[Rfam]
RNA sequence: CUAUGAAUAUUCUCACUGUCCUGAUUUUGUGAUAAGCAGGGCAGGCCAAACAUCUACUAUAUUAGGACUACGCAUGUGUCUCCAGACCUAGUUCUUUCCCUAGGUCGGUUUUAUAAAUGAUGUUGAUAAGU
Numbered sequence: 001c002u003a004u005g006a007a008u009a010u011u012c013u014c015a016c017u018g019u020c021c022u023g024a025u026u027u028u029g030u031g032a033u034a035a036g037c038a039g040g041g042c043a044g045g046c047c048a049a050a051c052a053u054c055u056a057c058u059a060u061a062u063u064a065g066g067a068c069u070a071c072g073c074a075u076g077u078g079u080c081u082c083c084a085g086a087c088c089u090a091g092u093u094c095u096u097u098c099c100c101u102a103g104g105u106c107g108g109u110u111u112u113a114u115a116a117a118u119g120a121u122g123u124u125g126a127u128a129a130g131u
Stems, first nucleotide, its partner, number of pairs: 004056002016044008025035002067124001069122002073119001082108002085106007

The record is a 131-nucleotide RNA from Chrysochloris asiatica, which matches "Small nucleolar RNA SNORA72" in Rfam.
For this family Rfam cites "The family of box ACA small nucleolar RNAs is defined by an evolutionarily conserved secondary structure and ubiquitous sequence elements essential for RNA accumulation" (Ganot et al., Genes Dev, 1997).
Pairs were carried over by alignment from the consensus structure, which was predicted with PFOLD.
Gene Ontology terms of the family: RNA processing and nucleolus.
By type it is an H/ACA-box small nucleolar RNA.
The organism belongs to Chrysochloris, within Eukaryota.